[Rfam]
RNA sequence: UGACAACGUUCCUCCGUCACGAUCAAGAUUGUGUCAUGACGGAUUUUUAGAUUGUCAAAGAACAAAAUUUCUCUUAUUCACCCGGCUGGGAUCGGUUCACUGAUAUACAGCCGGUUUUGCAGGAGAAAACAAUU
Number, nucleotide and partner (000 for none) at each position: 001u057002g056003a055004c054005a053006a052007c050008g000009u000010u000011c000012c000013u043014c042015c041016g040017u039018c000019a037020c000021g035022a034023u000024c000025a000026a000027g000028a000029u000030u000031g000032u000033g000034u022035c021036a000037u019038g000039a017040c016041g015042g014043a013044u000045u000046u000047u000048u000049a000050g007051a000052u006053u005054g004055u003056c002057a001058a000059a000060g000061a000062a000063c000064a000065a000066a000067a000068u000069u000070u126071c125072u124073c123074u122075u121076a000077u000078u000079c000080a000081c000082c114083c113084g112085g111086c110087u109088g108089g000090g000091a000092u000093c000094g000095g000096u000097u000098c000099a000100c000101u000102g000103a000104u000105a000106u000107a000108c088109a087110g086111c085112c084113g083114g082115u000116u000117u000118u000119g000120c000121a075122g074123g073124a072125g071126a070127a000128a000129a000130c000131a000132a000133u000134u000
RNA: Small nucleolar RNA SNORA79